[Rfam]
RNA sequence: GCGGAUGGCCGGAUGACCGCGGGAUGCCGCAAGGUGUGUCGAGGAAAGUCCGGACUCCAUGAGGCAAGGGUGCCGGGUAACGCCCGGCGGGGGCAACCCCAGGGAAAGCGCCACAGAGAUGAUACCGCCCCGCCUGCGGGGUAAGGGUGAAAUGGUGGGGUAAGAGCCCACCGCGGACCGGGCAACCGGGACGGCACGGCAAGCCCCACCCGGAGCAAUGCCGAAUAGGGGCCUUGCGCGGAAAGGUCCGGCGACCUCCCGGAAACGGGAUGCCGGAGACCUCCGCAGGGACGCUUCAGCCCAGAGGCCCGGGUUGGCAGCACGAUCCCGCCGGUAACGGCGGGACCAGAGGAAUGGUCAUCGAAGGGGGAAACCCCGGAACAGAAUCCGGCUUACAGGCCAUCCGCGCAC
Numbered sequence: 001g002c003g004g005a006u007g008g009c010c011g012g013a014u015g016a017c018c019g020c021g022g023g024a025u026g027c028c029g030c031a032a033g034g035u036g037u038g039u040c041g042a043g044g045a046a047a048g049u050c051c052g053g054a055c056u057c058c059a060u061g062a063g064g065c066a067a068g069g070g071u072g073c074c075g076g077g078u079a080a081c082g083c084c085c086g087g088c089g090g091g092g093g094c095a096a097c098c099c100c101a102g103g104g105a106a107a108g109c110g111c112c113a114c115a116g117a118g119a120u121g122a123u124a125c126c127g128c129c130c131c132g133c134c135u136g137c138g139g140g141g142u143a144a145g146g147g148u149g150a151a152a153u154g155g156u157g158g159g160g161u162a163a164g165a166g167c168c169c170a171c172c173g174c175g176g177a178c179c180g181g182g183c184a185a186c187c188g189g190g191a192c193g194g195c196a197c198g199g200c201a202a203g204c205c206c207c208a209c210c211c212g213g214a215g216c217a218a219u220g221c222c223g224a225a226u227a228g229g230g231g232c233c234u235u236g237c238g239c240g241g242a243a244a245g246g247u248c249c250g251g252c253g254a255c256c257u258c259c260c261g262g263a264a265a266c267g268g269g270a271u272g273c274c275g276g277a278g279a280c281c282u283c284c285g286c287a288g289g290g291a292c293g294c295u296u297c298a299g300c301c302c303a304g305a306g307g308c309c310c311g312g313g314u315u316g317g318c319a320g321c322a323c324g325a326u327c328c329c330g331c332c333g334g335u336a337a338c339g340g341c342g343g344g345a346c347c348a349g350a351g352g353a354a355u356g357g358u359c360a361u362c363g364a365a366g367g368g369g370g371a372a373a374c375c376c377c378g379g380a381a382c383a384g385a386a387u388c389c390g391g392c393u394u395a396c397a398g399g400c401c402a403u404c405c406g407c408g409c410a411c
Base pairs, nucleotide, nucleotide: 001407002406003405004404005403006402007401008400009399010398011396012362013361014360015359016358017357018356020041021040022039024037025036026035027034028033046394047393048392050391051390052389053388054387055215056214057213058212063297064296068211069210070209071208072207073087074086075085076084077083088102089100090099091098092097103206104205108204109203110200111199112198125146126145127142128141129140130139131138132137154172155171156170157169158168159167173195174193175192178189179188180187181186219319220318221317222316229310230309231308232307233306234305289302290301292299326345327344328343329342330341331340332339333338
A member of the RNA family "Bacterial RNase P class A" from Aliigemmobacter aestuarii, 411 nucleotides long. About the family: Ribonuclease P (RNase P) is a ubiquitous endoribonuclease, found in archaea, bacteria and eukarya as well as chloroplasts and mitochondria. Its best characterised activity is the generation of mature 5'-ends of tRNAs by cleaving the 5'-leader elements of precursor-tRNAs. Cellular RNase Ps are ribonucleoproteins.